[Rfam]
Nucleotides: 098
Stems, first nucleotide, its partner, number of pairs: 019083007030046005056074006
Number, partner (000 for none) and nucleotide at each position: 001000c002000a003000a004000a005000a006000a007000u008000a009000a010000u011000a012000c013000a014000u015000u016000u017000u018000a019083a020082c021081u022080c023079g024078u025077a026000u027000a028000u029000c030046c031045c032044c033043u034042g035000a036000a037000u038000a039000u040000g041000g042034c043033a044032g045031g046030g047000a048000g049000u050000c051000u052000c053000u054000a055000c056074c057073g058072g059071a060070a061069a062000c063000c064000g065000a066000g067000a068000a069061u070060u071059u072058c073057c074056g075000a076000c077025u078024a079023u080022g081021g082020g083019u084000g085000g086000a087000a088000u089000u090000u091000a092000u093000g094000g095000c096000u097000a098000u

A member of the RNA family "Purine riboswitch aptamer" from Clostridium aciditolerans, 98 nucleotides long. Gene Ontology term of the family: purine nucleobase biosynthetic process. Lineage of the source: Bacteria > Bacillota > Eubacteriales > Clostridiaceae > Clostridium.